[Rfam]
RNA sequence: ACUGCCAUCAAAACUCCGAGCGACUCUCUUCUAAGUCAUGAAGACAUAACGGAAUCGUCCAUGAUAAGAGGGUGUCGCCAGUGACCGGCCUGUGCUGGUUUCACUCAGGGUGAGUUCAGAAAUGAGCUGGCCUCCCGUAUUUGGAAAGGUGUUCCGUGGCGAAACAA
Numbered sequence: 001a002c003u004g005c006c007a008u009c010a011a012a013a014c015u016c017c018g019a020g021c022g023a024c025u026c027u028c029u030u031c032u033a034a035g036u037c038a039u040g041a042a043g044a045c046a047u048a049a050c051g052g053a054a055u056c057g058u059c060c061a062u063g064a065u066a067a068g069a070g071g072g073u074g075u076c077g078c079c080a081g082u083g084a085c086c087g088g089c090c091u092g093u094g095c096u097g098g099u100u101u102c103a104c105u106c107a108g109g110g111u112g113a114g115u116u117c118a119g120a121a122a123u124g125a126g127c128u129g130g131c132c133u134c135c136c137g138u139a140u141u142u143g144g145a146a147a148g149g150u151g152u153u154c155c156g157u158g159g160c161g162a163a164a165c166a167a
Stems, first nucleotide, its partner, number of pairs: 003161002006158001012153003016149002020078005026072002029070003035065006080105005108133004113128006134144002